[Rfam]
RNA sequence: GGCCAGGGGGAAAGAAAUGCUAUAUGUUAAAACAUUUAAUAUGGGCAAGCAGAGAGCUGGAACGAUUUGCAGUUAACCCUGGCC
Numbered sequence: 001g002g003c004c005a006g007g008g009g010g011a012a013a014g015a016a017a018u019g020c021u022a023u024a025u026g027u028u029a030a031a032a033c034a035u036u037u038a039a040u041a042u043g044g045g046c047a048a049g050c051a052g053a054g055a056g057c058u059g060g061a062a063c064g065a066u067u068u069g070c071a072g073u074u075a076a077c078c079c080u081g082g083c084c
Stems, first nucleotide, its partner, number of pairs: 001084008
The record is an 84-nucleotide RNA sequence from Lentivirus humimdef1, which matches "HIV gag stem loop 3 (GSL3)" in Rfam. This family consists of several HIV gag stem loop 3 (GSL3) sequences. GSL3 is known to direct specific packaging of HIV-1 genomic RNA. Deletion of GSL3 leads to decreases in both viral RNA packaging and dimerisation. By type it is a cis-regulatory element. For this family Rfam cites "RNA interactions in the 5' region of the HIV-1 genome" (Damgaard et al., J Mol Biol, 2004). The family's consensus secondary structure was predicted with PFOLD.